The family of this 70-nucleotide sequence is "ftsZ-DE RNA". Rfam classes the family as a small RNA.
RNA sequence: GAGUGCGCGAGUGCGCACUCACCACAACACAAAAGGGUUACCCGGGUCUCCCUGCCUGGGUAAUCCUUAU
Numbered sequence: 001g002a003g004u005g006c007g008c009g010a011g012u013g014c015g016c017a018c019u020c021a022c023c024a025c026a027a028c029a030c031a032a033a034a035g036g037g038u039u040a041c042c043c044g045g046g047u048c049u050c051c052c053u054g055c056c057u058g059g060g061u062a063a064u065c066c067u068u069a070u
Stems, first nucleotide, its partner, number of pairs: 001020008033068015